[Rfam]
RNA sequence: ACGUAAGUCGAAGGGGAGUAGCGUUAGGUGUAUACCUAAAACAAAGUCGUCAUUUCAUGGAUAAUUCAUUCAUCGGCUUUGUUGGCAUGAAGAUAAGACAUGCUCAGCGAGACCUUUGCCUUUAUAGGCAUAGGUCUCGCUUUUUUUUGUUUUCUUCGUGCUU
Dot-bracket structure: ........................(((........))).((((((((((.......(((((.......)))))))))))))))................................................................................